[Rfam]
RNA: DUF3800-VIII RNA
Nucleotides: 068
Base pairs, nucleotide, nucleotide: 001068002067003066004065005064006063007062008061009060010059011058014056015055017053021043023041024040025039026038027037028036029035
Number, partner (000 for none) and nucleotide at each position: 001068g002067c003066c004065g005064c006063c007062c008061u009060g010059c011058c012000u013000g014056c015055g016000c017053c018000g019000a020000a021043g022000g023041c024040c025039u026038g027037c028036g029035c030000u031000g032000g033000a034000u035029g036028c037027g038026c039025g040024g041023g042000g043021u044000a045000u046000u047000g048000a049000u050000g051000u052000a053017g054000a055015c056014g057000c058011g059010g060009u061008g062007g063006g064005g065004c066003g067002g068001c